[Rfam]
RNA: Yersinia sRNA 201
Organism: Yersinia kristensenii
RNA sequence: UACAGGAUAUGCCCAUAAUCAAUUUCCGUUUCCGUGUAGCAAUGGUUACUGGAACGCCGCCCCGAUUGUU
Numbered sequence: 001u002a003c004a005g006g007a008u009a010u011g012c013c014c015a016u017a018a019u020c021a022a023u024u025u026c027c028g029u030u031u032c033c034g035u036g037u038a039g040c041a042a043u044g045g046u047u048a049c050u051g052g053a054a055c056g057c058c059g060c061c062c063c064g065a066u067u068g069u070u
Stems, first nucleotide, its partner, number of pairs: 003064001005062002010059002027056004032052003036049005